[Rfam]
RNA: mir-33 microRNA precursor family
RNA sequence: CUGUGGUGCAUUGUAGUUGCAUUGCAUGUUCUGACAGCACAGUGCAAUGGAUCUGCUUUGCAACACAG
Number, nucleotide and partner (000 for none) at each position: 001c068002u067003g066004u065005g000006g064007u062008g061009c060010a059011u000012u000013g056014u055015a054016g053017u000018u000019g000020c000021a048022u047023u046024g045025c044026a043027u042028g000029u000030u000031c000032u000033g000034a000035c000036a000037g000038c000039a000040c000041a000042g027043u026044g025045c024046a023047a022048u021049g000050g000051a000052u000053c016054u015055g014056c013057u000058u000059u010060g009061c008062a007063a000064c006065a004066c003067a002068g001